[Rfam]
RNA sequence: AGAGAGGCUUCCACGUGGGCAACCGCUUGGGGGCCUUUUUCUUUUGC
Dot-bracket structure: ....((((((((..((((....))))..))))))))...........

Shown here is a 47-nucleotide sequence from Shinella fusca, a member of the family "ctRNA".
Rfam's curators write: This family represents a group of ctRNAs (or counter-transcribed RNAs) from p42d and related plasmids. ctRNAs are small, highly structured, antisense sequences which are involved in negative regulation.
It is annotated as an antisense RNA.
The base pairs follow the family's consensus structure, which is taken from published work.
The match comes from Rfam's covariance-model search (56 bits).
A reference for the family is Venkova-Canova et al. (2004), "Two discrete elements are required for the replication of a repABC plasmid: an antisense RNA and a stem-loop structure", Mol Microbiol.